[Rfam]
RNA: Singlet oxygen resistance RNA X
Organism: Sulfitobacter albidus
RNA sequence: CGAAGAUGAGUGGCCGGGCCAAGUGCCACUCUACCUCCCUGUUGGACUUGGCCGGGCCUUUGUGCCCGGUCUUUUUU
Numbered sequence: 001c002g003a004a005g006a007u008g009a010g011u012g013g014c015c016g017g018g019c020c021a022a023g024u025g026c027c028a029c030u031c032u033a034c035c036u037c038c039c040u041g042u043u044g045g046a047c048u049u050g051g052c053c054g055g056g057c058c059u060u061u062g063u064g065c066c067c068g069g070u071c072u073u074u075u076u077u
Base pairs, nucleotide, nucleotide: 008031009030010029011028012027013026014025050071051070052069053068054067055066056065057064